[Rfam]
RNA: GcvB RNA
Organism: Yersinia enterocolitica
RNA sequence: ACUUCCCAAGCCGGAACGAAAAGUAGGUUUAGUAUCCAGGUACUGAAUUGCUUUUGGCUUUGUGGUUGUGAUGUUGUGUUUGCAAAUGGUCUGGUAUGCCAGACAUAGUAGCUAAGCUACUGUUUUUUUUCACUUCCUGUACAUUUACCCUGUCUGUCCAUAGUGAUUUUAUGCAGCACCGCUAUUUUCGCGGUGCUUUUUUU
Numbered sequence: 001a002c003u004u005c006c007c008a009a010g011c012c013g014g015a016a017c018g019a020a021a022a023g024u025a026g027g028u029u030u031a032g033u034a035u036c037c038a039g040g041u042a043c044u045g046a047a048u049u050g051c052u053u054u055u056g057g058c059u060u061u062g063u064g065g066u067u068g069u070g071a072u073g074u075u076g077u078g079u080u081u082g083c084a085a086a087u088g089g090u091c092u093g094g095u096a097u098g099c100c101a102g103a104c105a106u107a108g109u110a111g112c113u114a115a116g117c118u119a120c121u122g123u124u125u126u127u128u129u130u131c132a133c134u135u136c137c138u139g140u141a142c143a144u145u146u147a148c149c150c151u152g153u154c155u156g157u158c159c160a161u162a163g164u165g166a167u168u169u170u171a172u173g174c175a176g177c178a179c180c181g182c183u184a185u186u187u188u189c190g191c192g193g194u195g196c197u198u199u200u201u202u203u
Stems, first nucleotide, its partner, number of pairs: 009059004015055002021053006028047008089104006107121006142173003175197008